[Rfam]
RNA sequence: GGCACACAGAAAGCGCCAGGACUCCCCGCAAGAAGACAGGAUUGCCGGAGACGGGGAGUUGACGAGGGAGACGUUCAUCGAGUUUGUUCGGCGGGUGCGUCUCGGCUCAGGGCCGGUCGUCAGAGCGGCGACAAAGCCCGGUGGUGACACCGGGGACAAAGCACCGCUCAGGCCCCGCG
Numbered sequence: 001g002g003c004a005c006a007c008a009g010a011a012a013g014c015g016c017c018a019g020g021a022c023u024c025c026c027c028g029c030a031a032g033a034a035g036a037c038a039g040g041a042u043u044g045c046c047g048g049a050g051a052c053g054g055g056g057a058g059u060u061g062a063c064g065a066g067g068g069a070g071a072c073g074u075u076c077a078u079c080g081a082g083u084u085u086g087u088u089c090g091g092c093g094g095g096u097g098c099g100u101c102u103c104g105g106c107u108c109a110g111g112g113c114c115g116g117u118c119g120u121c122a123g124a125g126c127g128g129c130g131a132c133a134a135a136g137c138c139c140g141g142u143g144g145u146g147a148c149a150c151c152g153g154g155g156a157c158a159a160a161g162c163a164c165c166g167c168u169c170a171g172g173c174c175c176c177g178c179g
Stems, first nucleotide, its partner, number of pairs: 020060009069102005078091004103119005123169006137154007
This 179-nucleotide sequence from Rubrobacter radiotolerans belongs to the Rfam family "glmS glucosamine-6-phosphate activated ribozyme aptamer". Rfam classes the family as a riboswitch. Gene Ontology terms of the family: regulation of gene expression and catalytic activity. Rfam's curators write: This entry contains a glucosamine-6-phosphate activated ribozyme that is found in the mRNA for GlmS. GlmS is an enzyme that uses fructose-6-phosphate and glutamine to generate glucosamine-6-phosphate. It scores 100 bits against the family's covariance model.